[Rfam]
RNA sequence: UAAACUCUGCAGUAAUGUAAGAGCUGAACUGUCAGAAUGCAGCAGAAGUCAUAGUAGAUUGAUGGAUAUAUACAUCAAUUGAAGGAU
Numbered sequence: 001u002a003a004a005c006u007c008u009g010c011a012g013u014a015a016u017g018u019a020a021g022a023g024c025u026g027a028a029c030u031g032u033c034a035g036a037a038u039g040c041a042g043c044a045g046a047a048g049u050c051a052u053a054g055u056a057g058a059u060u061g062a063u064g065g066a067u068a069u070a071u072a073c074a075u076c077a078a079u080u081g082a083a084g085g086a087u
Base pairs, nucleotide, nucleotide: 001026002025006021008019009018010017011016038047040045048087049086050085057080058079059078060077061076062075063074064073
RNA: Group II catalytic intron D1-D4-1